A member of the RNA family "FMN riboswitch aptamer (RFN element)" from Leifsonia sp. CL147, 150 nucleotides long. NCBI's taxonomy places the organism under Bacteria, Bacillati, Actinomycetes, Micrococcales, Leifsonia.

RNA sequence: ACGUGCUCCGGGGUCGGUGAAAGUCCGAACCGGCGGUGACAGUCCGCGAGCGGGACGCCCAGGCGCCCUGCUGAGCCGGUGGAAUUCCGGCACCGACGGUAAUGCGUCAGGCUCAGGCCUGUCGCUCAGUCCGGAUGGGAGGCAGCACGG
Numbered sequence: 001a002c003g004u005g006c007u008c009c010g011g012g013g014u015c016g017g018u019g020a021a022a023g024u025c026c027g028a029a030c031c032g033g034c035g036g037u038g039a040c041a042g043u044c045c046g047c048g049a050g051c052g053g054g055a056c057g058c059c060c061a062g063g064c065g066c067c068c069u070g071c072u073g074a075g076c077c078g079g080u081g082g083a084a085u086u087c088c089g090g091c092a093c094c095g096a097c098g099g100u101a102a103u104g105c106g107u108c109a110g111g112c113u114c115a116g117g118c119c120u121g122u123c124g125c126u127c128a129g130u131c132c133g134g135a136u137g138g139g140a141g142g143c144a145g146c147a148c149g150g
Base pairs, nucleotide, nucleotide: 002149003148004147005146006145007144008141015027016026017025031095032094033047034046035045036044042093043092050071051070052069075091076090077089078088079087097133098132099131